[Rfam]
About this RNA:
The record is a 103-nucleotide sequence from Carassius auratus, which matches "Vault RNA" in Rfam. On this family, see Stadler et al., Mol Biol Evol 2009: "Evolution of Vault RNAs". Rfam describes the family as follows. This family of RNAs are found as part of the enigmatic vault ribonucleoprotein complex. The complex consists of a major vault protein (MVP), two minor vault proteins (VPARP and TEP1), and several small untranslated RNA molecules.

RNA sequence: GCGUUGGUUUAGCUCAGUGGUUACUUCCUCAAGCAAAAACUAGCUCACGGCUGACGGUUACCGACGGCCAGAGAUCGAACCACGGGCUCUGUCCAGCGUUUUG
Numbered sequence: 001g002c003g004u005u006g007g008u009u010u011a012g013c014u015c016a017g018u019g020g021u022u023a024c025u026u027c028c029u030c031a032a033g034c035a036a037a038a039a040c041u042a043g044c045u046c047a048c049g050g051c052u053g054a055c056g057g058u059u060a061c062c063g064a065c066g067g068c069c070a071g072a073g074a075u076c077g078a079a080c081c082a083c084g085g086g087c088u089c090u091g092u093c094c095a096g097c098g099u100u101u102u103g
Base pairs, nucleotide, nucleotide: 002098003097004096005095006094007093012087013086014085015084017083018082019081020080025079026078027077